RNA sequence: AUGUGACCUGUGGACUUCCCUUUGUCAUCCUAUGCCUGGGGACAUAGAGGAGGCUGGGAAGGCAAAGAGACGUCCAGUCGUCAUCAGC
Numbered sequence: 001a002u003g004u005g006a007c008c009u010g011u012g013g014a015c016u017u018c019c020c021u022u023u024g025u026c027a028u029c030c031u032a033u034g035c036c037u038g039g040g041g042a043c044a045u046a047g048a049g050g051a052g053g054c055u056g057g058g059a060a061g062g063c064a065a066a067g068a069g070a071c072g073u074c075c076a077g078u079c080g081u082c083a084u085c086a087g088c
Stems, first nucleotide, its partner, number of pairs: 017070002020067003024063002028059005034054004
The record is an 88-nucleotide RNA sequence from Electrophorus electricus, which matches "mir-204 microRNA precursor family" in Rfam. The organism belongs to Electrophorus, within Eukaryota. The match comes from Rfam's covariance-model search (89 bits).